RNA sequence: AUGUCUACUCUAACUUUAGUAUCUUUCUUUUCAACCAAAGCAGAAAGUGCUAUCAAGUUGGGGUAAAUGUU
Number, nucleotide and partner (000 for none) at each position: 001a000002u000003g000004u067005c000006u065007a064008c063009u062010c061011u060012a000013a058014c057015u055016u000017u000018a051019g050020u049021a048022u000023c047024u046025u000026u044027c043028u042029u000030u000031u000032c000033a000034a000035c000036c000037a000038a000039a000040g000041c000042a028043g027044a026045a000046a024047g023048u021049g020050c019051u018052a000053u000054c000055a015056a000057g014058u013059u000060g011061g010062g009063g008064u007065a006066a000067a004068u000069g000070u000071u000
Source information:
The record is a 71-nucleotide RNA sequence from Labeo rohita, which matches "miR-430 microRNA precursor family" in Rfam.